Shown here is an 86-nucleotide sequence from Lathyrus oleraceus, a member of the family "Small nucleolar RNA R11/Z151". It is annotated as a C/D-box small nucleolar RNA. It scores 69 bits against the family's covariance model. The family has 5 seed sequences and 802 matches in Rfam 15.1. For this family Rfam cites "Identification of 66 box C/D snoRNAs in Arabidopsis thaliana: extensive gene duplications generated multiple isoforms predicting new ribosomal RNA 2'-O-methylation sites" (Barneche et al., J Mol Biol, 2001).
[Rfam]
RNA sequence: AGGCUUAUGAUGAUAUUAUACUUUAAUCUUAGCGGAUUUCGGUGAGAUUUUUAAUCAAGGAUCUUAUUGUUACACACACUAAGCCC
Numbered sequence: 001a002g003g004c005u006u007a008u009g010a011u012g013a014u015a016u017u018a019u020a021c022u023u024u025a026a027u028c029u030u031a032g033c034g035g036a037u038u039u040c041g042g043u044g045a046g047a048u049u050u051u052u053a054a055u056c057a058a059g060g061a062u063c064u065u066a067u068u069g070u071u072a073c074a075c076a077c078a079c080u081a082a083g084c085c086c
Stems, first nucleotide, its partner, number of pairs: 002085004